[Rfam]
RNA sequence: CCCGCCACUCUGCCUGUCUGUUAGUGACUGUGUAUAGUCCAGUGGAGGCUGAGAUUGACCCAGCUCUAGGAAGCAGGGCUACCCAGUAUAGUGGGAAUCCCUGUGCCGAAAGAUCUGGUACAUGU
Number, nucleotide and partner (000 for none) at each position: 001c000002c000003c000004g000005c045006c044007a043008c042009u041010c000011u000012g000013c000014c000015u000016g000017u000018c032019u000020g029021u027022u000023a000024g000025u000026g000027a021028c000029u020030g000031u000032g018033u000034a000035u000036a000037g000038u000039c000040c000041a009042g008043u007044g006045g005046a000047g000048g000049c000050u000051g000052a000053g000054a000055u000056u000057g000058a000059c000060c118061c117062a116063g115064c000065u112066c000067u110068a000069g107070g106071a000072a000073g000074c103075a102076g101077g100078g099079c000080u000081a000082c095083c094084c093085a000086g000087u000088a000089u000090a000091g000092u000093g084094g083095g082096a000097a000098u000099c078100c077101c076102u075103g074104u000105g000106c070107c069108g000109a000110a067111a000112g065113a000114u000115c063116u062117g061118g060119u000120a000121c000122a000123u000124g000125u000
Small nucleolar RNA SNORA65: a 125-nucleotide RNA from Gadus morhua. The family is grouped with related families in Rfam's "SNORA65 clan". Rfam links the family to the GO terms RNA processing and nucleolus. U65 belongs to the H/ACA class of snoRNAs which are thought to guide the sites of modification of uridines to pseudouridines. The match comes from Rfam's covariance-model search (85 bits).